[Rfam]
RNA sequence: UGGAUUGCUAUGAUGAUACAUCAGAGUUUCGGACUAGAGUUUCUGAUCUGGCUUGACCAGUUUGACGAGAAAUCUCUUGGCUGGCUGAGCAUUCCA
Numbered sequence: 001u002g003g004a005u006u007g008c009u010a011u012g013a014u015g016a017u018a019c020a021u022c023a024g025a026g027u028u029u030c031g032g033a034c035u036a037g038a039g040u041u042u043c044u045g046a047u048c049u050g051g052c053u054u055g056a057c058c059a060g061u062u063u064g065a066c067g068a069g070a071a072a073u074c075u076c077u078u079g080g081c082u083g084g085c086u087g088a089g090c091a092u093u094c095c096a
Base pairs, nucleotide, nucleotide: 001096002095003094004093006091007090008089040067042065043064048060049059050058051057